[Rfam]
RNA sequence: GGCUGGUCCAGUGGUAGUGGGUUAUCAGAACUUAUAAUAUUAGUGUCACUAAAGUUGGUAUACAAUCCCCCACUGCUAAAUUUGACUGGCUUUUA
Numbered sequence: 001g002g003c004u005g006g007u008c009c010a011g012u013g014g015u016a017g018u019g020g021g022u023u024a025u026c027a028g029a030a031c032u033u034a035u036a037a038u039a040u041u042a043g044u045g046u047c048a049c050u051a052a053a054g055u056u057g058g059u060a061u062a063c064a065a066u067c068c069c070c071c072a073c074u075g076c077u078a079a080a081u082u083u084g085a086c087u088g089g090c091u092u093u094u095a
Base pairs, nucleotide, nucleotide: 001091002090003089004088005087006086007085008084010083011082015078016074017073018072019071020070021069027059030056
Notes:
The record is a 95-nucleotide RNA from Prolemur simus, which matches "Y RNA" in Rfam. The family's consensus secondary structure is taken from published work. Lineage of the source: Eukaryota > Euteleostomi > Amniota > Euarchontoglires > Prolemur.